[Rfam]
RNA sequence: GCUGUAAUGAUGAUCCCCAUGCGUGUCAACUGACUCCAGAGUCUCCUGUGCUCCUCUGCCACGUCUCAGCGUUCUGUUGGGGUGUGUACAGGGUUCACAGCUCUCUGGAGGCAUGAUCUGACCUCACUGACCUGAUCACAGC
Numbered sequence: 001g002c003u004g005u006a007a008u009g010a011u012g013a014u015c016c017c018c019a020u021g022c023g024u025g026u027c028a029a030c031u032g033a034c035u036c037c038a039g040a041g042u043c044u045c046c047u048g049u050g051c052u053c054c055u056c057u058g059c060c061a062c063g064u065c066u067c068a069g070c071g072u073u074c075u076g077u078u079g080g081g082g083u084g085u086g087u088a089c090a091g092g093g094u095u096c097a098c099a100g101c102u103c104u105c106u107g108g109a110g111g112c113a114u115g116a117u118c119u120g121a122c123c124u125c126a127c128u129g130a131c132c133u134g135a136u137c138a139c140a141g142c
Stems, first nucleotide, its partner, number of pairs: 001142004046100005051092001
RNA: Small nucleolar RNA SNORD10
Organism: Pangasianodon hypophthalmus